[Rfam]
Nucleotides: 266
Base pairs, nucleotide, nucleotide: 002266003265004264005263007261008260009259010258011257014220015219016218017217018216019215022075023074024073025072026071027070028069037053038052039051040050041049080251081250083249084248085247086246095107096106097105098104108123109122110121111120112119113118125193126192127191134188136186137185142182143181145179150176151175152174153173160169161168162167222236223235224234225233226232227231
Number, partner (000 for none) and nucleotide at each position: 001000g002266g003265a004264u005263g006000c007261u008260c009259u010258g011257a012000a013000g014220a015219c016218c017217u018216g019215c020000u021000c022075u023074c024073u025072a026071g027070g028069c029000c030000a031000c032000g033000c034000a035000c036000g037053g038052a039051g040050g041049a042000c043000g044000c045000u046000u047000g048000u049041u050040c051039c052038u053037c054000a055000c056000g057000g058000g059000c060000u061000c062000c063000g064000c065000g066000c067000c068000c069028g070027c071026c072025u073024a074023g075022g076000g077000g078000a079000a080251a081250g082000u083249c084248c085247c086246c087000g088000g089000a090000c091000c092000g093000c094000c095107g096106g097105c098104a099000g100000a101000g102000a103000g104098u105097g106096c107095c108123g109122g110121g111120c112119g113118c114000g115000g116000c117000g118113g119112c120111g121110c122109c123108c124000c125193a126192c127191c128000c129000g130000c131000c132000g133000a134188c135000g136186c137185c138000u139000c140000a141000c142182g143181c144000a145179c146000c147000u148000u149000c150176c151175c152174g153173c154000c155000g156000a157000g158000a159000a160169g161168c162167c163000c164000c165000c166000g167162g168161g169160c170000g171000g172000a173153g174152c175151g176150g177000g178000u179145g180000a181143g182142c183000g184000c185137g186136g187000g188134g189000c190000g191127g192126g193125u194000c195000u196000u197000c198000g199000u200000c201000a202000c203000c204000g205000g206000c207000a208000c209000a210000g211000a212000c213000a214000c215019g216018c217017a218016g219015g220014u221000a222236g223235u224234g225233c226232g227231c228000c229000g230000g231227g232226c233225g234224c235223a236222c237000c238000a239000a240000c241000a242000g243000a244000a245000c246086g247085g248084g249083g250081c251080u252000c253000a254000c255000u256000c257011u258010c259009a260008g261007g262000a263005c264004a265003u266002c
Rfam assigns this 266-nucleotide sequence from Glareola pratincola to the family "RNase MRP". Its family is annotated with ribonuclease MRP complex, rRNA processing and ribonuclease MRP activity in the Gene Ontology. RNase MRP is an enzymatically active ribonucleoprotein with two distinct roles in eukaryotes.